The record is a 79-nucleotide sequence from Abrus precatorius, which matches "Small nucleolar RNA Z122" in Rfam. The literature on the family includes a 2003 paper in Nucleic Acids Res by Chen et al., "The high diversity of snoRNAs in plants: identification and comparative study of 120 snoRNA genes from Oryza sativa". It is annotated as a C/D-box small nucleolar RNA.
RNA sequence: UUUGGGAAAUGAUGCCAUAGAUUCAAACAGAAGCGCCAGCUCUGCCGAAUUAUUUUUUGCACGUCAGUCUGAUCCCAAA
Numbered sequence: 001u002u003u004g005g006g007a008a009a010u011g012a013u014g015c016c017a018u019a020g021a022u023u024c025a026a027a028c029a030g031a032a033g034c035g036c037c038a039g040c041u042c043u044g045c046c047g048a049a050u051u052a053u054u055u056u057u058u059g060c061a062c063g064u065c066a067g068u069c070u071g072a073u074c075c076c077a078a079a
Stems, first nucleotide, its partner, number of pairs: 001079007